[Rfam]
RNA sequence: GUUGCUUCAUAUGGUGAACUCACUCUUAAAAUUGAAGUGAGUGGUGUUCAAGUUUCCGAAGCAUAGAUGAAUUGUCAGUAUUAAACAGCAUGUUGUUUAUUUCAAUUGCAUCUUGCUACCUGUCUCCUGCUACAUUU
Number, nucleotide and partner (000 for none) at each position: 001g000002u000003u063004g062005c061006u060007u059008c058009a000010u000011a000012u000013g000014g000015u050016g049017a048018a047019c046020u044021c043022a042023c041024u040025c000026u000027u000028a000029a000030a000031a000032u000033u000034g000035a000036a000037g000038u000039g000040a024041g023042u022043g021044g020045u000046g019047u018048u017049c016050a015051a000052g000053u000054u000055u000056c000057c000058g008059a007060a006061g005062c004063a003064u000065a000066g000067a000068u000069g000070a000071a000072u000073u000074g131075u000076c129077a128078g127079u000080a125081u000082u000083a000084a000085a000086c000087a117088g116089c115090a000091u000092g112093u000094u110095g109096u000097u000098u000099a000100u000101u000102u000103c000104a000105a000106u000107u000108g000109c095110a094111u000112c092113u000114u000115g089116c088117u087118a000119c000120c000121u000122g000123u000124c000125u080126c000127c078128u077129g076130c000131u074132a000133c000134a000135u000136u000137u000
Source information: small nucleolar RNA snoR137: a 137-nucleotide RNA from Nicotiana tabacum. Pairs were carried over by alignment from the consensus structure, which was predicted with RNAalifold. It is annotated as an H/ACA-box small nucleolar RNA. The match comes from Rfam's covariance-model search (106 bits). The organism belongs to Nicotiana, within Eukaryota. On this family, see Chen and Wu, Nucleic Acids Res 2009: "Mining small RNA sequencing data: a new approach to identify small nucleolar RNAs in Arabidopsis".